A member of the RNA family "Lysine riboswitch aptamer" from Virgibacillus salinus, 178 nucleotides long. The family's consensus secondary structure is taken from published work. It scores 124 bits against the family's covariance model.

RNA sequence: CGGUGAGGUAGAGGUGCAGAAAACAUGAGUAGUCAGUUGGAGGUUGACCAUCAAUGAAGGCUGAUGAAAGGGUUUUUUGCCGAAGUGUAAUGAUAGUCAAGUCAUUAUUGCUGGUAUGUUUUUGAAUAAAAGAUAUACUGCCAUGCUAAUACUUAGUGCAUGGAGAACUACUGAUCGA
Numbered sequence: 001c002g003g004u005g006a007g008g009u010a011g012a013g014g015u016g017c018a019g020a021a022a023a024c025a026u027g028a029g030u031a032g033u034c035a036g037u038u039g040g041a042g043g044u045u046g047a048c049c050a051u052c053a054a055u056g057a058a059g060g061c062u063g064a065u066g067a068a069a070g071g072g073u074u075u076u077u078u079g080c081c082g083a084a085g086u087g088u089a090a091u092g093a094u095a096g097u098c099a100a101g102u103c104a105u106u107a108u109u110g111c112u113g114g115u116a117u118g119u120u121u122u123u124g125a126a127u128a129a130a131a132g133a134u135a136u137a138c139u140g141c142c143a144u145g146c147u148a149a150u151a152c153u154u155a156g157u158g159c160a161u162g163g164a165g166a167a168c169u170a171c172u173g174a175u176c177g178a
Stems, first nucleotide, its partner, number of pairs: 007172005016080009032065007084112004088107007113139011141163006
Dot-bracket structure: ......(((((....(((((((((.......(((((((....................)))))))......)))))))))...(((((((((((......))))))).))))(((((((((((.....))))))))))).((((((...........))))))....)))))......